The family of this 81-nucleotide RNA sequence from Enterobius vermicularis is "SmY spliceosomal RNA". The source organism's lineage runs through Eukaryota, Protostomia, Ecdysozoa, Chromadorea and Enterobius. The literature on the family includes a 2007 paper in RNA by MacMorris et al., "A novel family of C. elegans snRNPs contains proteins associated with trans-splicing". Pairs were carried over by alignment from the consensus structure, which is taken from published work. It scores 52 bits against the family's covariance model.
RNA sequence: AAUCGCUUUUAACUAUUUGUCGGGCCUUAGUCAAGACCCAGUGAACAGUUUUUGGGGCCUGGCCAGUUUUUCGGUCAGGUA
Numbered sequence: 001a002a003u004c005g006c007u008u009u010u011a012a013c014u015a016u017u018u019g020u021c022g023g024g025c026c027u028u029a030g031u032c033a034a035g036a037c038c039c040a041g042u043g044a045a046c047a048g049u050u051u052u053u054g055g056g057g058c059c060u061g062g063c064c065a066g067u068u069u070u071u072c073g074g075u076c077a078g079g080u081a
Stems, first nucleotide, its partner, number of pairs: 022039003026035003057080008